[Rfam]
RNA sequence: GAUCAAUGGUGAAAAUAGCCAAAUCUGAGCAUCAAAACACCUGCCAGGCUACCUGAUGCAUGAUCUGCAUCGUUCUGAGA
Number, nucleotide and partner (000 for none) at each position: 001g000002a000003u000004c000005a000006a000007u000008g000009g000010u000011g000012a000013a000014a000015a000016u000017a000018g000019c000020c000021a000022a000023a000024u000025c000026u000027g000028a000029g059030c058031a057032u056033c055034a000035a000036a000037a050038c000039a000040c047041c000042u000043g000044c000045c000046a000047g040048g000049c000050u037051a000052c000053c000054u000055g033056a032057u031058g030059c029060a000061u000062g000063a000064u000065c000066u000067g000068c000069a000070u000071c000072g000073u000074u000075c000076u000077g000078a000079g000080a000
Rfam assigns this 80-nucleotide RNA from Leptonychotes weddellii to the family "Small nucleolar RNA U2-19". The literature on the family includes a 2004 paper in Curr Biol by Tycowski et al., "Guide RNAs with 5' Caps and Novel Box C/D snoRNA-like Domains for Modification of snRNAs in Metazoa". Its family is annotated with nucleolus and RNA processing in the Gene Ontology.